[Rfam]
RNA: U4 spliceosomal RNA
RNA sequence: UCAAAGGUGCUCGGGCUUUACGCUUACCAGUGAAGACUUUGUCUGAGGUAGCGUUUUUGCUAGUUGAAAACUACAACUAUGACUGCUCCAGCUGGUCCUCGGAUCGGUCUGGGAAUUUUUGACGCAUUUCGCA
Numbered sequence: 001u002c003a004a005a006g007g008u009g010c011u012c013g014g015g016c017u018u019u020a021c022g023c024u025u026a027c028c029a030g031u032g033a034a035g036a037c038u039u040u041g042u043c044u045g046a047g048g049u050a051g052c053g054u055u056u057u058u059g060c061u062a063g064u065u066g067a068a069a070a071c072u073a074c075a076a077c078u079a080u081g082a083c084u085g086c087u088c089c090a091g092c093u094g095g096u097c098c099u100c101g102g103a104u105c106g107g108u109c110u111g112g113g114a115a116u117u118u119u120u121g122a123c124g125c126a127u128u129u130c131g132c133a
Stems, first nucleotide, its partner, number of pairs: 020054005026049003034044003087113003091108007